[Rfam]
RNA: mir-H11 microRNA precursor family
Organism: Simplexvirus humanalpha1
RNA sequence: GAACGCGAAGCGUUCGCACUUUGUCCUAAUAAUAUAUAUAUUAUUAGGACAAAGUGCGAACGCUUCGCGUUC
Numbered sequence: 001g002a003a004c005g006c007g008a009a010g011c012g013u014u015c016g017c018a019c020u021u022u023g024u025c026c027u028a029a030u031a032a033u034a035u036a037u038a039u040a041u042u043a044u045u046a047g048g049a050c051a052a053a054g055u056g057c058g059a060a061c062g063c064u065u066c067g068c069g070u071u072c
Base pairs, nucleotide, nucleotide: 001072002071003070004069005068006067008065009064010063011062012061013060014059015058016057017056018055019054020053021052022051023050024049025048026047027046028045029044030043031042